A member of the RNA family "L31-Actinobacteria ribosomal protein leader" from Actinoallomurus bryophytorum, 47 nucleotides long. For this family Rfam cites "Discovery of 20 novel ribosomal leader candidates in bacteria and archaea" (Eckert and Weinberg, BMC Microbiol, 2020). The family's consensus secondary structure is taken from published work. A search with the family's covariance model found it, with a score of 54 bits. The organism belongs to Actinoallomurus, within Bacteria.
[Rfam]
RNA sequence: GCGGUACCGGUUCACAUCCCCGGAUCCCCGGAGAUGACCCGGCGACC
Numbered sequence: 001g002c003g004g005u006a007c008c009g010g011u012u013c014a015c016a017u018c019c020c021c022g023g024a025u026c027c028c029c030g031g032a033g034a035u036g037a038c039c040c041g042g043c044g045a046c047c
Stems, first nucleotide, its partner, number of pairs: 003047003007042004015036004020031004